[Rfam]
RNA: Saccharopolyspora sRNA 350
RNA sequence: CGGGUGGUGUGCUGCCAGGUGGCGUCGGCGUCGACGAUCGAGUCCUCGCCGAGAUAGGACCCGUCGGCCAGGACGUUGACCACGGCCUCGUCCCCGUAGGGACCGGCGCCGAUCUGCUCCACCCUGCCGUGGGCCAGCAGGAUGACCCGGUCCGCCGGGUCGCCCGCCUGGGCGAGCACCUGUCCGGCCGUGUACUCCUGCUGGGUGCAGCGGCUCGCCAGCUCCGAGAGGGCCUCCUCGUCGCCGUACCCCCGCAGGGCGGGCAGCUCGCCCAGUUCGGCGGGGAUGACCGACACCCGGUCGCCGGUCUGGACGAAGGUGACCCGGCCGUCCCCGACCGCGUAGGUCAGGCGGCGGUUCACCCGGUAGGUGCCGCCCUGCACCUGCACCCACGGCAGCAUGCGCAGCAGCCACCGCGAGGUGAUCUCCUGCAUCUGCGGGACCGACUUGGUGGUGGUCGCGAGGUUGCGCGCGGCCGCGGUGCCGAGGCUCUGCUGUGACAACUG
Numbered sequence: 001c002g003g004g005u006g007g008u009g010u011g012c013u014g015c016c017a018g019g020u021g022g023c024g025u026c027g028g029c030g031u032c033g034a035c036g037a038u039c040g041a042g043u044c045c046u047c048g049c050c051g052a053g054a055u056a057g058g059a060c061c062c063g064u065c066g067g068c069c070a071g072g073a074c075g076u077u078g079a080c081c082a083c084g085g086c087c088u089c090g091u092c093c094c095c096g097u098a099g100g101g102a103c104c105g106g107c108g109c110c111g112a113u114c115u116g117c118u119c120c121a122c123c124c125u126g127c128c129g130u131g132g133g134c135c136a137g138c139a140g141g142a143u144g145a146c147c148c149g150g151u152c153c154g155c156c157g158g159g160u161c162g163c164c165c166g167c168c169u170g171g172g173c174g175a176g177c178a179c180c181u182g183u184c185c186g187g188c189c190g191u192g193u194a195c196u197c198c199u200g201c202u203g204g205g206u207g208c209a210g211c212g213g214c215u216c217g218c219c220a221g222c223u224c225c226g227a228g229a230g231g232g233c234c235u236c237c238u239c240g241u242c243g244c245c246g247u248a249c250c251c252c253c254g255c256a257g258g259g260c261g262g263g264c265a266g267c268u269c270g271c272c273c274a275g276u277u278c279g280g281c282g283g284g285g286a287u288g289a290c291c292g293a294c295a296c297c298c299g300g301u302c303g304c305c306g307g308u309c310u311g312g313a314c315g316a317a318g319g320u321g322a323c324c325c326g327g328c329c330g331u332c333c334c335c336g337a338c339c340g341c342g343u344a345g346g347u348c349a350g351g352c353g354g355c356g357g358u359u360c361a362c363c364c365g366g367u368a369g370g371u372g373c374c375g376c377c378c379u380g381c382a383c384c385u386g387c388a389c390c391c392a393c394g395g396c397a398g399c400a401u402g403c404g405c406a407g408c409a410g411c412c413a414c415c416g417c418g419a420g421g422u423g424a425u426c427u428c429c430u431g432c433a434u435c436u437g438c439g440g441g442a443c444c445g446a447c448u449u450g451g452u453g454g455u456g457g458u459c460g461c462g463a464g465g466u467u468g469c470g471c472g473c474g475g476c477c478g479c480g481g482u483g484c485c486g487a488g489g490c491u492c493u494g495c496u497g498u499g500a501c502a503a504c505u506g
Base pairs, nucleotide, nucleotide: 006390007389008388009387010386011385016380018328021325022324025322026321027320029318031316032315038313039312041310042309044307045306048305050303051302052301057234058233060231061230062226063225065111066110067109068108075103077102080099082097083096084095085094119221123217126214127213130209132206134204135203136202137201139199140198141197144195150191154188155187156186157185158184159183160182162177165174166173167172235295240290241289242288243287245285249283250282252280253279254278256277257276259271260270261269329342330341331340351379353377354376355375356374357373360372361371362370363369391431392430394428395427397425399423400422401421403418404417405416407415437476438475440473443470446467447465448464449463451461452460477506478505481501482500484499487496488495